RNA sequence: GUUGCUUCUUAAUGGUGAACUCUUUUAAAAUUAAUGAUAGAGAUUCAAGUUUCCGAAGCAUAGAUUCAGUGUUUUACAUCGCCAGUAUUAAACAGCUCGAUGUGUAUGCAAUUGCAUCGAUGUUACCUGUCUCCUGGCAGAUUU
Numbered sequence: 001g002u003u004g005c006u007u008c009u010u011a012a013u014g015g016u017g018a019a020c021u022c023u024u025u026u027a028a029a030a031u032u033a034a035u036g037a038u039a040g041a042g043a044u045u046c047a048a049g050u051u052u053c054c055g056a057a058g059c060a061u062a063g064a065u066u067c068a069g070u071g072u073u074u075u076a077c078a079u080c081g082c083c084a085g086u087a088u089u090a091a092a093c094a095g096c097u098c099g100a101u102g103u104g105u106a107u108g109c110a111a112u113u114g115c116a117u118c119g120a121u122g123u124u125a126c127c128u129g130u131c132u133c134c135u136g137g138c139a140g141a142u143u144u
Stems, first nucleotide, its partner, number of pairs: 003060006016047004021041003025037001081138005087132001094124003098119005

Rfam assigns this 144-nucleotide RNA sequence from Mikania micrantha to the family "small nucleolar RNA snoR137". Rfam classes the family as an H/ACA-box small nucleolar RNA. The match comes from Rfam's covariance-model search (105 bits). The family's consensus secondary structure was predicted with RNAalifold. Gene Ontology terms of the family: RNA processing and nucleolus.